Record summary:
Rfam assigns this 52-nucleotide sequence from Donghicola tyrosinivorans to the family "ffh sRNA".
[Rfam]
RNA sequence: UUUUGCCGGGAUCGCCCUCCAUCAGCGCGUUGCGCCCAUGGGGGCGCUUGGC
Dot-bracket structure: ...............(((((((..((((...))))..)))))))........
NCBI's taxonomy places the organism under Bacteria, Pseudomonadati, Alphaproteobacteria, Rhodobacterales, Donghicola. Pairs were carried over by alignment from the consensus structure, which is taken from published work.